Annotation
Rfam assigns this 85-nucleotide RNA from Paenibacillus athensensis to the family "c-di-GMP-I-GGC riboswitch aptamer". Lineage of the source: Bacteria > Bacillati > Bacilli > Caryophanales > Paenibacillus.
RNA sequence: UUUGAAAAAGGCAAACUUGUCGAAAGGCAAGGACGCAAAGCCGCGGAUCUACUGUUCACCUACAAUGAUGGCCGGGCUACCAAAU
Numbered sequence: 001u002u003u004g005a006a007a008a009a010g011g012c013a014a015a016c017u018u019g020u021c022g023a024a025a026g027g028c029a030a031g032g033a034c035g036c037a038a039a040g041c042c043g044c045g046g047a048u049c050u051a052c053u054g055u056u057c058a059c060c061u062a063c064a065a066u067g068a069u070g071g072c073c074g075g076g077c078u079a080c081c082a083a084a085u
Base pairs, nucleotide, nucleotide: 003082004081011036012035016031017030018029019028020027021026034071039078040077041076042075044074045073046072047069048068049067